[Rfam]
RNA sequence: UCCUGCCUGCUCGUGAUCGUCUUCUCACCGUUCACCGGCAGGCGGCACAACGGACGGUUGCCGCCGGCCCGAUGCCUGCGGGAGCCGUCC
Numbered sequence: 001u002c003c004u005g006c007c008u009g010c011u012c013g014u015g016a017u018c019g020u021c022u023u024c025u026c027a028c029c030g031u032u033c034a035c036c037g038g039c040a041g042g043c044g045g046c047a048c049a050a051c052g053g054a055c056g057g058u059u060g061c062c063g064c065c066g067g068c069c070c071g072a073u074g075c076c077u078g079c080g081g082g083a084g085c086c087g088u089c090c
Base pairs, nucleotide, nucleotide: 002045003044005043006042007041008040009039010038011037013035014034015033016032019029052090053089054088055087056086057085058084059083061081062080063079064078066076067075
The family of this 90-nucleotide RNA from Streptomyces fumanus is "sodF sRNA". The match comes from Rfam's covariance-model search (57 bits). The base pairs follow the family's consensus structure. Rfam classes the family as a small RNA. The source organism's lineage runs through Bacteria, Bacillati, Actinomycetes, Kitasatosporales and Streptomyces. Its family is annotated with mRNA binding, negative regulation of translation and regulation of mRNA stability in the Gene Ontology.